[Rfam]
RNA: S15-Flavobacteria ribosomal protein leader
RNA sequence: UAUAUUUGCCACUUGAUUGUUUCAAAAAAUUGAUUACAUAAAAAUUAUUUAAAGAAAUAUUGGAAUG
Numbered sequence: 001u002a003u004a005u006u007u008g009c010c011a012c013u014u015g016a017u018u019g020u021u022u023c024a025a026a027a028a029a030u031u032g033a034u035u036a037c038a039u040a041a042a043a044a045u046u047a048u049u050u051a052a053a054g055a056a057a058u059a060u061u062g063g064a065a066u067g
Stems, first nucleotide, its partner, number of pairs: 014032005